The family of this 164-nucleotide RNA sequence from Heterocephalus glaber is "U1 spliceosomal RNA". For this family Rfam cites "Crystal structure of human spliceosomal U1 snRNP at 5.5 A resolution" (Pomeranz Krummel et al., Nature, 2009). It scores 143 bits against the family's covariance model. It is annotated as a spliceosomal small nuclear RNA. About the family: U1 is a small nuclear RNA (snRNA) component of the spliceosome (involved in pre-mRNA splicing). Its 5' end forms complementary base pairs with the 5' splice junction, thus defining the 5' donor site of an intron. There are significant differences in sequence and secondary structure between metazoan and yeast U1 snRNAs, the latter being much longer (568 nucleotides as compared to 164 nucleotides in human). Nevertheless, secondary structure predictions suggest that all U1 snRNAs share a 'common core' consisting of helices I, II, the proximal region of III, and IV. This family does not contain the larger yeast sequences.
Nucleotides: 164
Stems, first nucleotide, its partner, number of pairs: 012122004016048006023042005049090002054086001056083003060079005092117003095113003099109002138163006147154002
Number, partner (000 for none) and nucleotide at each position: 001000a002000u003000a004000c005000u006000u007000a008000c009000c010000u011000g012122g013121c014120a015119g016048g017047g018046g019045a020044g021043a022000u023042a024041c025040c026039a027038u028000g029000a030000u031000c032000a033000c034000u035000a036000a037000g038027g039026u040025g041024g042023u043021u044020u045019u046018c047017c048016c049090a050089g051000c052000u053000c054086g055000a056083g057082g058081c059000u060079u061078a062077u063076c064075c065000a066000u067000u068000g069000c070000a071000c072000u073000c074000c075064g076063g077062a078061u079060g080000u081058g082057c083056u084000g085000a086054c087000c088000c089050c090049u091000g092117u093116g094115a095113u096112u097111u098000c099109c100108c101000c102000a103000a104000a105000u106000g107000u108100g109099g110000g111097a112096a113095a114000u115094u116093c117092a118000a119015c120014u121013g122012c123000a124000u125000a126000a127000u128000u129000u130000g131000u132000g133000g134000u135000a136000g137000u138163g139162g140161g141160g142159g143158a144000c145000c146000u147154c148153a149000u150000u151000c152000a153148u154147g155000c156000u157000u158143u159142c160141c161140c162139u163138u164000a